[Rfam]
Nucleotides: 271
Base pairs, nucleotide, nucleotide: 004260005259006258007257008256009255016162017161018160020158031120033118034117035116037114060108062106063105065103066102068100166178167177168176169175
Number, partner (000 for none) and nucleotide at each position: 001000c002000g003000c004260u005259g006258g007257c008256c009255g010000a011000g012000a013000c014000a015000u016162c017161a018160c019000a020158g021000a022000u023000u024000c025000a026000a027000c028000g029000g030000c031120u032000u033118g034117g035116g036000a037114g038000g039000u040000u041000u042000c043000g044000u045000g046000a047000a048000u049000c050000c051000g052000a053000g054000a055000g056000g057000u058000a059000a060108g061000c062106g063105c064000c065103g066102c067000g068100g069000c070000c071000u072000g073000c074000c075000u076000u077000u078000c079000c080000g081000g082000a083000c084000c085000u086000g087000c088000c089000c090000u091000u092000c093000g094000c095000g096000u097000u098000u099000u100068c101000a102066g103065c104000u105063g106062c107000u108060c109000c110000u111000g112000c113000u114037c115000a116035c117034c118033c119000c120031g121000g122000g123000c124000c125000c126000u127000g128000u129000a130000c131000c132000c133000u134000c135000a136000g137000a138000u139000c140000a141000g142000u143000a144000a145000c146000c147000u148000c149000g150000g151000u152000g153000c154000g155000c156000c157000c158020c159000c160018g161017u162016g163000c164000a165000g166178c167177g168176g169175c170000c171000u172000g173000u174000c175169g176168u177167u178166g179000g180000a181000u182000u183000g184000c185000c186000u187000c188000u189000g190000a191000g192000g193000u194000c195000c196000u197000g198000c199000c200000u201000g202000c203000c204000u205000g206000c207000u208000g209000a210000c211000c212000g213000a214000c215000u216000g217000a218000c219000u220000g221000g222000c223000c224000u225000a226000c227000g228000g229000c230000g231000c232000c233000g234000g235000c236000a237000a238000g239000a240000u241000g242000a243000a244000g245000c246000u247000g248000u249000c250000c251000c252000u253000g254000g255009u256008g257007g258006c259005u260004g261000c262000g263000g264000u265000g266000c267000u268000g269000c270000u271000g

bip internal ribosome entry site (IRES): a 271-nucleotide RNA from Panthera tigris. From the family's description: This family represents the bip internal ribosome entry site (IRES). BiP protein expression has been found to be significantly enhanced by the heat shock response due to IRES-dependent translation. It is thought that this translational mechanism is essential for the survival of cells under stress. Its family is annotated with ribosome binding in the Gene Ontology. The base pairs follow the family's consensus structure, which was predicted with PFOLD. Rfam 15.1 lists 234 matches to the family in 131 species. Taxonomically the source falls in Panthera tigris (Eukaryota, Metazoa, Chordata, Sarcopterygii).